[Rfam]
RNA sequence: GAAGACAAGUAGAGGCACCCGCUUCUCGCCUGAUCGACGCAGUUCUUGCAGUUGGCAGGUCAUCAUCUAUGAGUAUUAACUUGGAGACGUGUGGGUGCAAUUGUGUACCGACACUUUUUUAAUGAA
Numbered sequence: 001g002a003a004g005a006c007a008a009g010u011a012g013a014g015g016c017a018c019c020c021g022c023u024u025c026u027c028g029c030c031u032g033a034u035c036g037a038c039g040c041a042g043u044u045c046u047u048g049c050a051g052u053u054g055g056c057a058g059g060u061c062a063u064c065a066u067c068u069a070u071g072a073g074u075a076u077u078a079a080c081u082u083g084g085a086g087a088c089g090u091g092u093g094g095g096u097g098c099a100a101u102u103g104u105g106u107a108c109c110g111a112c113a114c115u116u117u118u119u120u121a122a123u124g125a126a
Stems, first nucleotide, its partner, number of pairs: 011026006028060003036053003039049002090113003094109006

A member of the RNA family "Ribosomal protein L20 leader" from Paraliobacillus ryukyuensis, 126 nucleotides long. A reference for the family is Zengel and Lindahl (1994), "Diverse mechanisms for regulating ribosomal protein synthesis in Escherichia coli", Prog Nucleic Acid Res Mol Biol. By type it is a cis-regulatory leader. The match comes from Rfam's covariance-model search (65 bits). Pairs were carried over by alignment from the consensus structure, which was predicted with CMfinder. The organism belongs to Paraliobacillus, within Bacteria. This family is a putative r-protein leader autoregulatory structure found in B. subtilis and other low-GC Gram-positive bacteria.